The family of this 264-nucleotide RNA from bacterium 1XD42-8 is "Bacterial large signal recognition particle RNA". The base pairs follow the family's consensus structure, which is taken from published work. From the family's description: The signal recognition particle (SRP) is a universally conserved ribonucleoprotein involved in the co-translational targeting of proteins to membranes.
RNA sequence: CCGUGCAGCCGGGGAGUUAGCGGUGCCCUGUACCUACAAUCCGCUACAGUAGGGGUGAUGUCUUGCAUAGGAUUUUGCGCUCAUGCAGCUGCCCUGUAAAAGUGGCGUUGACGUCUGGGUCUUACGCAAUGGGAAUCUAUGAAUCGUGUCAGGUCUGGAAGGAAGCAGCACUAAGUAGAAUCUCCUAUGUGCCGUAAGGGUGCCUGGGCCGAGCAAACUAUACAGGUAACGUGUCUGGGCAAUGGUUCGAAGCAAGACGCACGG
Numbered sequence: 001c002c003g004u005g006c007a008g009c010c011g012g013g014g015a016g017u018u019a020g021c022g023g024u025g026c027c028c029u030g031u032a033c034c035u036a037c038a039a040u041c042c043g044c045u046a047c048a049g050u051a052g053g054g055g056u057g058a059u060g061u062c063u064u065g066c067a068u069a070g071g072a073u074u075u076u077g078c079g080c081u082c083a084u085g086c087a088g089c090u091g092c093c094c095u096g097u098a099a100a101a102g103u104g105g106c107g108u109u110g111a112c113g114u115c116u117g118g119g120u121c122u123u124a125c126g127c128a129a130u131g132g133g134a135a136u137c138u139a140u141g142a143a144u145c146g147u148g149u150c151a152g153g154u155c156u157g158g159a160a161g162g163a164a165g166c167a168g169c170a171c172u173a174a175g176u177a178g179a180a181u182c183u184c185c186u187a188u189g190u191g192c193c194g195u196a197a198g199g200g201u202g203c204c205u206g207g208g209c210c211g212a213g214c215a216a217a218c219u220a221u222a223c224a225g226g227u228a229a230c231g232u233g234u235c236u237g238g239g240c241a242a243u244g245g246u247u248c249g250a251a252g253c254a255a256g257a258c259g260c261a262c263g264g
Base pairs, nucleotide, nucleotide: 001264002263003262004261005260006259008056009055010054011029012028013027014026016024017023018022033053034052035051036050037049061257062256063255064254065253066252070248071247072246073245074244079240080239081238082237083236085234086233090228091227094225095224096223097222098221102218103217105214106213113209114208115207116206117205118204119203120202121198122197123196124195125194126193127189128188130187131186132185133184134183136179137178138177139176140175146171147170148169149168154163155162156161